The family of this 109-nucleotide sequence from Onychostoma macrolepis is "Vault RNA". The source organism's lineage runs through Eukaryota, Gnathostomata, Actinopterygii, Otomorpha and Onychostoma. The match comes from Rfam's covariance-model search (56 bits). Rfam describes the family as follows. This family of RNAs are found as part of the enigmatic vault ribonucleoprotein complex. The complex consists of a major vault protein (MVP), two minor vault proteins (VPARP and TEP1), and several small untranslated RNA molecules. It has been suggested that the vault complex is involved in drug resistance.
RNA sequence: GCGUUGGUUUGGCUCAGUGGUUACUUCUGAUUGUUACCAAAUCUCAUUCUCAUGGCCACCGAGAAAUCGGUGACCGUGGAUCGAACCGCGGGCUCUGUCCAACGUUUUC
Numbered sequence: 001g002c003g004u005u006g007g008u009u010u011g012g013c014u015c016a017g018u019g020g021u022u023a024c025u026u027c028u029g030a031u032u033g034u035u036a037c038c039a040a041a042u043c044u045c046a047u048u049c050u051c052a053u054g055g056c057c058a059c060c061g062a063g064a065a066a067u068c069g070g071u072g073a074c075c076g077u078g079g080a081u082c083g084a085a086c087c088g089c090g091g092g093c094u095c096u097g098u099c100c101a102a103c104g105u106u107u108u109c
Base pairs, nucleotide, nucleotide: 002104003103004102005101006100007099012093013092014091015090017089018088019087020086025085026084027083029081
A reference for the family is Stadler et al. (2009), "Evolution of Vault RNAs", Mol Biol Evol.
The family's consensus secondary structure is taken from published work.